[Rfam]
RNA sequence: GGUUUCAACCUAGUUAAUCAAGGUUAGCUUCGAGUUCGAAUUUUCUUUGCAAAAAGAACAUGUUGAAAUCAACUUUUGGAACCGCUUUUCCGGGGUUUCCGGUGGAGCAAA
Numbered sequence: 001g002g003u004u005u006c007a008a009c010c011u012a013g014u015u016a017a018u019c020a021a022g023g024u025u026a027g028c029u030u031c032g033a034g035u036u037c038g039a040a041u042u043u044u045c046u047u048u049g050c051a052a053a054a055a056g057a058a059c060a061u062g063u064u065g066a067a068a069u070c071a072a073c074u075u076u077u078g079g080a081a082c083c084g085c086u087u088u089u090c091c092g093g094g095g096u097u098u099c100c101g102g103u104g105g106a107g108c109a110a111a
Stems, first nucleotide, its partner, number of pairs: 007036002009032001013028002016025003040061002044058001045056004086109001088107005094100002
The family of this 111-nucleotide RNA from Caenorhabditis japonica is "SL2 RNA". NCBI's taxonomy places the organism under Eukaryota, Opisthokonta, Metazoa, Ecdysozoa, Caenorhabditis. It is annotated as a non-coding RNA gene. It scores 69 bits against the family's covariance model. A reference for the family is Evans and Blumenthal (2000), "trans splicing of polycistronic Caenorhabditis elegans pre-mRNAs: analysis of the SL2 RNA", Mol Cell Biol. The family's consensus secondary structure is taken from published work. This family represents SL2 RNA. SL2 RNA is involved in trans splicing in lower eukaryotes. Trans-splicing is a form of RNA processing.